Record summary: Shown here is a 148-nucleotide RNA from Sinorhizobium sp. BG8, a member of the family "Alphaproteobacterial sRNA ar7". The match comes from Rfam's covariance-model search (118 bits). The pairing is the family consensus, mapped onto this sequence. Lineage of the source: Bacteria > Pseudomonadati > Alphaproteobacteria > Rhizobiaceae > Sinorhizobium. By type it is a small RNA.

RNA sequence: CAUCGGCAUCUAAUCAAGCCGUUGUCUGGCACCCGGCCUGUCCCCCGCCGCGCCAGACGUAGGACAAAGGCCUUUCCCCCUCUCCGGGCCUUUGUCCAUAAUUCGCAAGGACCGCCACGGGCGCGCCUCCAGCCCGUGGCGGUUUUUC
Numbered sequence: 001c002a003u004c005g006g007c008a009u010c011u012a013a014u015c016a017a018g019c020c021g022u023u024g025u026c027u028g029g030c031a032c033c034c035g036g037c038c039u040g041u042c043c044c045c046c047g048c049c050g051c052g053c054c055a056g057a058c059g060u061a062g063g064a065c066a067a068a069g070g071c072c073u074u075u076c077c078c079c080c081u082c083u084c085c086g087g088g089c090c091u092u093u094g095u096c097c098a099u100a101a102u103u104c105g106c107a108a109g110g111a112c113c114g115c116c117a118c119g120g121g122c123g124c125g126c127c128u129c130c131a132g133c134c135c136g137u138g139g140c141g142g143u144u145u146u147u148c
Stems, first nucleotide, its partner, number of pairs: 025057006035049003062097011109144001112142011
Dot-bracket structure: ........................((((((....(((.........)))..))))))....(((((((((((..............)))))))))))...........(..(((((((((((.........))))))))))).)....